[Rfam]
RNA sequence: UAGGAACUUCGUUAGGUGAGGCUCCUGUACGGAGAUAUGCUGCUGCCCAAAAAUGUCCAAAGACGCCAAUGGGUCAACAGAAACUAUCGAAUUAAGGUGGUUUUUAACGUAGCUGGCUGUGUCCUAUGCCGUACAGUGCUAAAGCUCUACGAAUGAAGGUUUAU
Numbered sequence: 001u002a003g004g005a006a007c008u009u010c011g012u013u014a015g016g017u018g019a020g021g022c023u024c025c026u027g028u029a030c031g032g033a034g035a036u037a038u039g040c041u042g043c044u045g046c047c048c049a050a051a052a053a054u055g056u057c058c059a060a061a062g063a064c065g066c067c068a069a070u071g072g073g074u075c076a077a078c079a080g081a082a083a084c085u086a087u088c089g090a091a092u093u094a095a096g097g098u099g100g101u102u103u104u105u106a107a108c109g110u111a112g113c114u115g116g117c118u119g120u121g122u123c124c125u126a127u128g129c130c131g132u133a134c135a136g137u138g139c140u141a142a143a144g145c146u147c148u149a150c151g152a153a154u155g156a157a158g159g160u161u162u163a164u
Stems, first nucleotide, its partner, number of pairs: 005160001007158004011150002013095001015146003020140003025136008039113005045074005054065004080104004086098003115124002
RNA: M-box riboswitch aptamer (ykoK leader)
Organism: Metabacillus lacus